The family of this 462-nucleotide RNA sequence from Vireo altiloquus is "Vertebrate telomerase RNA". Rfam's curators write: Telomerase is a ribonucleoprotein reverse transcriptase that synthesises telomeric DNA. Telomerase RNAs differ greatly in sequence and structure between vertebrates, ciliates and yeasts, but they share a 5' pseudoknot structure close to the template sequence. It is annotated as a non-coding RNA gene.
[Rfam]
RNA sequence: CCGUGCCGGGGUGGGCAGGCCCUGAGGCCGACUAACCCUAAUGGCGGCUGCUCCCCUCACACCCGCCCGCUGUUUUACUCGCUGACUUUCAGUGGGCGAAGGGAGCGGCCCUAGAAAUGGCGGGGGGGAGAAGGGAGGGAAGGUCGGGCUCAAAAAAAGCCAGCGAAGGGGUCUACACCCCGGCCUACCCUGGGGUCCCUGUACCUCAUCUGCCAAGGGGGCUGCUCCCGCGCUCCAGCCGUCGCCCUUCGUAGAGGCCGCGGUCGGCAGGCUCAGCGCCAUUGCCGCCGCGAAGAGUUCGUCUCUGUCAGCCUUGGCGACGGCCGGAGCCGUUGGGCCGCCCCGUCCCCCUUGUGCAGCCGAGGGACCCCAGCAGAACAAAACGGGUGCGGCGCCGCCGGGCGCUGAGCGGCCGCGGCUCCCUCAGAUGUGGAGUGCGCUGUCGGCGCCGCCCCGACACCC
Numbered sequence: 001c002c003g004u005g006c007c008g009g010g011g012u013g014g015g016c017a018g019g020c021c022c023u024g025a026g027g028c029c030g031a032c033u034a035a036c037c038c039u040a041a042u043g044g045c046g047g048c049u050g051c052u053c054c055c056c057u058c059a060c061a062c063c064c065g066c067c068c069g070c071u072g073u074u075u076u077a078c079u080c081g082c083u084g085a086c087u088u089u090c091a092g093u094g095g096g097c098g099a100a101g102g103g104a105g106c107g108g109c110c111c112u113a114g115a116a117a118u119g120g121c122g123g124g125g126g127g128g129a130g131a132a133g134g135g136a137g138g139g140a141a142g143g144u145c146g147g148g149c150u151c152a153a154a155a156a157a158a159g160c161c162a163g164c165g166a167a168g169g170g171g172u173c174u175a176c177a178c179c180c181c182g183g184c185c186u187a188c189c190c191u192g193g194g195g196u197c198c199c200u201g202u203a204c205c206u207c208a209u210c211u212g213c214c215a216a217g218g219g220g221g222c223u224g225c226u227c228c229c230g231c232g233c234u235c236c237a238g239c240c241g242u243c244g245c246c247c248u249u250c251g252u253a254g255a256g257g258c259c260g261c262g263g264u265c266g267g268c269a270g271g272c273u274c275a276g277c278g279c280c281a282u283u284g285c286c287g288c289c290g291c292g293a294a295g296a297g298u299u300c301g302u303c304u305c306u307g308u309c310a311g312c313c314u315u316g317g318c319g320a321c322g323g324c325c326g327g328a329g330c331c332g333u334u335g336g337g338c339c340g341c342c343c344c345g346u347c348c349c350c351c352u353u354g355u356g357c358a359g360c361c362g363a364g365g366g367a368c369c370c371c372a373g374c375a376g377a378a379c380a381a382a383a384c385g386g387g388u389g390c391g392g393c394g395c396c397g398c399c400g401g402g403c404g405c406u407g408a409g410c411g412g413c414c415g416c417g418g419c420u421c422c423c424u425c426a427g428a429u430g431u432g433g434a435g436u437g438c439g440c441u442g443u444c445g446g447c448g449c450c451g452c453c454c455c456g457a458c459a460c461c462c
Base pairs, nucleotide, nucleotide: 005184006183007182008181009180010179011178012177015176017174018173019172020171021170022169023168050106051105052104053103054102064098065097066096067095068094069093070092071091072090081164082163083162084161086159087157088156089155190373191372192371193370194369195368196367219343220342221341222340224338225337226336227335232330233329234328235327236326238324242320243319244318245317246316259292260291261290262289263288265287266286267285268284270280271279272278294306295305296304297303387454389452390451391450392449393448394447395446396445413442415440416439417438420435422433423432